[Rfam]
RNA sequence: ACUCAUGCACGCACCAUUCUUUUUUGCUUUCUCGUUUAUCCGGCCCUCAUGAGGGAAGGCCCGUCGUCACGUGAAGCACUCGCGUAAACAGAAAGCAAAGACGAAUCGAGCCUCCCCUAGCGGAGGUUUUUUUUU
Number, nucleotide and partner (000 for none) at each position: 001a000002c000003u000004c000005a000006u000007g000008c000009a000010c000011g000012c000013a000014c000015c000016a106017u105018u104019c103020u000021u101022u100023u099024u098025u097026g096027c095028u094029u093030u092031c091032u090033c000034g089035u000036u087037u086038a085039u084040c000041c000042g000043g000044c055045c054046c000047u000048c000049a000050u000051g000052a000053g000054g045055g044056a000057a000058g068059g067060c066061c000062c000063g000064u000065c000066g060067u059068c058069a000070c000071g000072u000073g000074a000075a000076g000077c000078a000079c000080u000081c000082g000083c000084g039085u038086a037087a036088a000089c034090a032091g031092a030093a029094a028095g027096c026097a025098a024099a023100g022101a021102c000103g019104a018105a017106u016107c000108g129109a128110g127111c126112c125113u124114c123115c122116c000117c000118u000119a000120g000121c000122g115123g114124a113125g112126g111127u110128u109129u108130u000131u000132u000133u000134u000135u000
Rfam assigns this 135-nucleotide RNA from Aeromonas hydrophila to the family "Phenylalanine leader peptide". Rfam classes the family as a cis-regulatory leader. Rfam links the family to the GO term cellular amino acid metabolic process. The family has 71 seed sequences and 379 matches in Rfam 15.1. Pairs were carried over by alignment from the consensus structure, which was predicted with CMfinder.